[Rfam]
RNA sequence: CAUCUUGACGAUGACGAUCUGAUCUCAUACAUCCUCACAGGCCUUGACUUCGUGGUGUCCUCUGUUGCUGCACGUGUAGAGCCCAUGACAGUGGGUGAUCUGUAUGCGCAACUGCUGAGCUUUGAGC
Numbered sequence: 001c002a003u004c005u006u007g008a009c010g011a012u013g014a015c016g017a018u019c020u021g022a023u024c025u026c027a028u029a030c031a032u033c034c035u036c037a038c039a040g041g042c043c044u045u046g047a048c049u050u051c052g053u054g055g056u057g058u059c060c061u062c063u064g065u066u067g068c069u070g071c072a073c074g075u076g077u078a079g080a081g082c083c084c085a086u087g088a089c090a091g092u093g094g095g096u097g098a099u100c101u102g103u104a105u106g107c108g109c110a111a112c113u114g115c116u117g118a119g120c121u122u123u124g125a126g127c
Stems, first nucleotide, its partner, number of pairs: 004126005081096006
RNA: Small nucleolar RNA Z247